A member of the RNA family "Bacterial RNase P class A" from Ensifer fredii, 398 nucleotides long. The family's consensus secondary structure is taken from published work. Rfam classes the family as a ribozyme. Taxonomically the source falls in Ensifer fredii (Bacteria, Pseudomonadota, Hyphomicrobiales, Ensifer).
RNA sequence: CCAGUUGGCCGGGCAGCCGCGCCCCGCAGGUGCCGAAAGGCCGCGGGGUGAGGAAAGUCCGGGCUCCACGGAAACACGGUGCCGGAUAACGUCCGGCGGGGGCGACCCCAGGGAAAGUGCCACAGAAAGCAAACCGCUCCGCUCGCGGAGUAAGGGUGAAAGGGUGGGGUAAGAGCCCACCGCGGACAUGGCGACAUGGACGGCACGGUAAACCCCACCGGGAGCAAAACCGAAUAGGGAUGACACGGGCGCGCAAGCGCCCAGCCGGUUUCCAGGCCGGUCAUCCGGGUGGGUUGCACGAGGCUGUGCGCAAGCGCAGUCCCAGAUGAAUGGCUGCCACGUUCCGCUUCCUCGGAGGCGGAGCCAUACAGAACCCGGCUUACAGGCCAACUGGCGAU
Dot-bracket structure: ((((((((((((((((((.((((((((...............))))))))....[[[.[[[[[((((.........((((((((((.....)))))(((((....)))).)((...(((((............((((((((....))))))..)).......((((((.......))))))(((..((((....))))..)).)..)))..)))))))))))))...((((......((((((......................((((......)))).)))))).....))))......((((((((....))))))))..........)))))))...................................]]]]]]]].).))))))))))....